RNA sequence: CGCCAGCCGAGACAGCACCGACAUAUCUGCUUGUGUGUUUCGAGACGUGAGAGGUAGGCUCCGGGGCCUGCUUUUUCAGACCUCUCCUUCACCUUGUUCGUGUCUCCUUCUGACCCCGGGCCUCUGUCGCCUUCAGGUCGGUAACCUCGCUGCACCCCAGUGUUUCGGCCGGUGACCGGAUUACCAGCGACGUCCUGCCUGCCUGCUGACCCACUGGCCGGCAAGAUGAAGCUCUGUUUGGUGGCAGCGAUGCUGCUG
Numbered sequence: 001c002g003c004c005a006g007c008c009g010a011g012a013c014a015g016c017a018c019c020g021a022c023a024u025a026u027c028u029g030c031u032u033g034u035g036u037g038u039u040u041c042g043a044g045a046c047g048u049g050a051g052a053g054g055u056a057g058g059c060u061c062c063g064g065g066g067c068c069u070g071c072u073u074u075u076u077c078a079g080a081c082c083u084c085u086c087c088u089u090c091a092c093c094u095u096g097u098u099c100g101u102g103u104c105u106c107c108u109u110c111u112g113a114c115c116c117c118g119g120g121c122c123u124c125u126g127u128c129g130c131c132u133u134c135a136g137g138u139c140g141g142u143a144a145c146c147u148c149g150c151u152g153c154a155c156c157c158c159a160g161u162g163u164u165u166c167g168g169c170c171g172g173u174g175a176c177c178g179g180a181u182u183a184c185c186a187g188c189g190a191c192g193u194c195c196u197g198c199c200u201g202c203c204u205g206c207u208g209a210c211c212c213a214c215u216g217g218c219c220g221g222c223a224a225g226a227u228g229a230a231g232c233u234c235u236g237u238u239u240g241g242u243g244g245c246a247g248c249g250a251u252g253c254u255g256c257u258g
Base pairs, nucleotide, nucleotide: 004247006245007244008243009242015163016162017161018160020158030119031118033116035114036113058106062102063101065099066098166178167177168176170174
RNA: bip internal ribosome entry site (IRES)
Organism: Carlito syrichta